[Rfam]
RNA: Eukaryotic large subunit ribosomal RNA, nucleotides 1483 to 1919
RNA sequence: GGCAGUAGCAAAUAUUCAAGUGAGAACCUUGAAGACUGAAGUGGAGAAUGGUUAUUUGGGCAUUGCAUUUAGCCAAAUGUUAGUCGAUCCUAAGAGAUAGGGAAACUCCGUUUUAAAGAUUACAAUUAUUUGUAACAACUAUCGAAAGGGAAUCAGGUUAAUAUUCCUGAACCAGGAUGUGGAUCAUUAGCGGUAACGCAAAUGAACUUGGAGACACUAGUAAAAACCCUGGGAAGAGUUAUCUUUUCUUUUUAACAAUCUAUUACCUUGAAAUCGAAUUGUUCGGAGCUAAGGUUUAAUGAUUGGUAGAGCUUGAUAAUUUUGUCAAGUCCGGUGCGUUUUUAAUAGUCCAUGAAAAUCCAAGGGAAUGAAUAAUUUUCACACCUGAUCGUACACAUAACCGCAGCAGGUCUCCUAGGUGAAUAGCCUCUAGUUGA
Dot-bracket structure: ..............((((((.......))))))((((.....((((..((...((((((...(.......).))))))......(((.((...(((((.(((....)))))).......((............))......))....))...(((((........)))))..((((.((((((......(((....))).......((((((...((((.(((((((.(((((((((.........))))))...(((((....((((((...((((.....))))...)))))).....)))))......(((((((....)))))))..)))...))))))).)))).........))))))............).))))))))).)))..)).....((......)).)))).((((.....))))..))))..